The family of this 103-nucleotide RNA sequence from Lucilia cuprina is "mir-46/mir-47/mir-281 microRNA precursor family". Its family is annotated with miRNA-mediated post-transcriptional gene silencing and RISC complex in the Gene Ontology. A reference for the family is Lau et al. (2001), "An abundant class of tiny RNAs with probable regulatory roles in Caenorhabditis elegans", Science.

RNA sequence: CGAAUAACGAAAUAAAGAGAGCUAUCUGUCGACAGUCUAGUUAUUAAAUGACAACAAAACAUUAUAUUACUGUCAUGGAAUUGCUCUCUUUGUAUAGUAUUCG
Number, nucleotide and partner (000 for none) at each position: 001c000002g000003a000004a000005u000006a000007a000008c000009g000010a000011a000012a000013u000014a091015a090016a089017g088018a087019g000020a085021g084022c083023u000024a000025u079026c078027u077028g076029u000030c000031g074032a073033c072034a000035g070036u069037c000038u000039a000040g000041u000042u000043a000044u000045u000046a000047a000048a000049u000050g000051a000052c000053a000054a000055c000056a000057a000058a000059a000060c000061a000062u000063u000064a000065u000066a000067u000068u000069a036070c035071u000072g033073u032074c031075a000076u028077g027078g026079a025080a000081u000082u000083g022084c021085u020086c000087u018088c017089u016090u015091u014092g000093u000094a000095u000096a000097g000098u000099a000100u000101u000102c000103g000